[Rfam]
RNA sequence: UCCUGCUCCGCGAAAAGUCGCCCAGCGUGGCGGCCUGCACCUCUCCAAGUGAGAGUUCCGCUAGCGGAGUGGGUUACU
Numbered sequence: 001u002c003c004u005g006c007u008c009c010g011c012g013a014a015a016a017g018u019c020g021c022c023c024a025g026c027g028u029g030g031c032g033g034c035c036u037g038c039a040c041c042u043c044u045c046c047a048a049g050u051g052a053g054a055g056u057u058c059c060g061c062u063a064g065c066g067g068a069g070u071g072g073g074u075u076a077c078u
Stems, first nucleotide, its partner, number of pairs: 001073003005070007017034006037061002
RNA: DUF3800-IX RNA